[Rfam]
RNA sequence: UCAGGUGUAAGCUCGUUUAAGGGAUAACAUUCAGGUACUUUGGUUGCCUCGUUCAUCCUUGGGAAGGUCUGAGACAAAGGCUGUAUUAAUAACGUCCCAGCUGGACGUCCCUGUGAGAGGGGAGUGGUUCACCAGACACAACGGUUUCCUCAAGCUAACAUGUUUAAACGUCAAAUGACAGCCACGUUGUGGUUGGAUGACCUCUGUGUUAGCUUGUUGGUUGAAAGUGGUCCAUGGCCAGCGCGUAGAGCAGCUUGAUAAACGAGGUGGGUGCAGAGUUCGAUUCUUCGUUCCAGCCCCAUAACUCAAUUCAGACUAUUCUUCAUCUGA
Numbered sequence: 001u002c003a004g005g006u007g008u009a010a011g012c013u014c015g016u017u018u019a020a021g022g023g024a025u026a027a028c029a030u031u032c033a034g035g036u037a038c039u040u041u042g043g044u045u046g047c048c049u050c051g052u053u054c055a056u057c058c059u060u061g062g063g064a065a066g067g068u069c070u071g072a073g074a075c076a077a078a079g080g081c082u083g084u085a086u087u088a089a090u091a092a093c094g095u096c097c098c099a100g101c102u103g104g105a106c107g108u109c110c111c112u113g114u115g116a117g118a119g120g121g122g123a124g125u126g127g128u129u130c131a132c133c134a135g136a137c138a139c140a141a142c143g144g145u146u147u148c149c150u151c152a153a154g155c156u157a158a159c160a161u162g163u164u165u166a167a168a169c170g171u172c173a174a175a176u177g178a179c180a181g182c183c184a185c186g187u188u189g190u191g192g193u194u195g196g197a198u199g200a201c202c203u204c205u206g207u208g209u210u211a212g213c214u215u216g217u218u219g220g221u222u223g224a225a226a227g228u229g230g231u232c233c234a235u236g237g238c239c240a241g242c243g244c245g246u247a248g249a250g251c252a253g254c255u256u257g258a259u260a261a262a263c264g265a266g267g268u269g270g271g272u273g274c275a276g277a278g279u280u281c282g283a284u285u286c287u288u289c290g291u292u293c294c295a296g297c298c299c300c301a302u303a304a305c306u307c308a309a310u311u312c313a314g315a316c317u318a319u320u321c322u323u324c325a326u327c328u329g330a
Stems, first nucleotide, its partner, number of pairs: 001330004007324001009322001012266007020060005033049005038043001069314005079239004093107005108123005124235004129230002145220002267302005273297002
A member of the RNA family "Nuclear RNase P" from Octopus sinensis, 330 nucleotides long. Lineage of the source: Eukaryota > Protostomia > Octopoda > Incirrata > Octopus. The base pairs follow the family's consensus structure, which is taken from published work. Ribonuclease P (RNase P) is a ubiquitous endoribonuclease, found in archaea, bacteria and eukarya as well as chloroplasts and mitochondria. Its best characterised activity is the generation of mature 5'-ends of tRNAs by cleaving the 5'-leader elements of precursor-tRNAs. Cellular RNase Ps are ribonucleoproteins. It scores 115 bits against the family's covariance model. The family's RNA type in Rfam is ribozyme.